The family of this 78-nucleotide sequence from Cricetulus griseus is "mir-214 microRNA precursor family".
Nucleotides: 078
Base pairs, nucleotide, nucleotide: 006076007075008074011071012070013069014068015067016066017065018064019063023059025057026056027055028054029053030052032050033049034048
Number, partner (000 for none) and nucleotide at each position: 001000g002000u003000c004000a005000u006076g007075u008074g009000u010000c011071u012070g013069c014068c015067u016066g017065u018064c019063u020000a021000c022000a023059c024000u025057u026056g027055c028054u029053g030052u031000g032050c033049a034048g035000a036000a037000c038000a039000u040000c041000c042000g043000c044000u045000c046000a047000c048034c049033u050032g051000u052030a053029c054028a055027g056026c057025a058000g059023g060000c061000a062000c063019a064018g065017a066016c067015a068014g069013g070012c071011a072000g073000u074008c075007a076006c077000a078000u